This 84-nucleotide sequence from Equus asinus belongs to the Rfam family "mir-9014 microRNA precursor family".
Rfam 15.1 lists 581 matches to the family in 2 species.
Gene Ontology terms of the family: miRNA-mediated post-transcriptional gene silencing and RISC complex.
The organism belongs to Equus, within Eukaryota.

[Rfam]
RNA sequence: GGAGCCAUAGGGAGGGAUCCCAAUCCAGCCUUAGGAAAACCUGCCACAGGAGUCUUGGAGAUUGGCAACCCUCCUAAUGACUUA
Numbered sequence: 001g002g003a004g005c006c007a008u009a010g011g012g013a014g015g016g017a018u019c020c021c022a023a024u025c026c027a028g029c030c031u032u033a034g035g036a037a038a039a040c041c042u043g044c045c046a047c048a049g050g051a052g053u054c055u056u057g058g059a060g061a062u063u064g065g066c067a068a069c070c071c072u073c074c075u076a077a078u079g080a081c082u083u084a
Base pairs, nucleotide, nucleotide: 002083003082004081006079007078008077010075011074012073013072015070016069018067020065021064022063023062024061025060029058030057038056039055040050041049042048043047